[Rfam]
RNA sequence: CGUAUGGUGCUUGACGGUAAUAAUGACUGAUCAAGUGGCGAUGCGGCCUUAACAGAGGU
Numbered sequence: 001c002g003u004a005u006g007g008u009g010c011u012u013g014a015c016g017g018u019a020a021u022a023a024u025g026a027c028u029g030a031u032c033a034a035g036u037g038g039c040g041a042u043g044c045g046g047c048c049u050u051a052a053c054a055g056a057g058g059u
Stems, first nucleotide, its partner, number of pairs: 001045005007039002011034004015029004
RNA: L31-Gammaproteobacteria ribosomal protein leader
Organism: Colwellia chukchiensis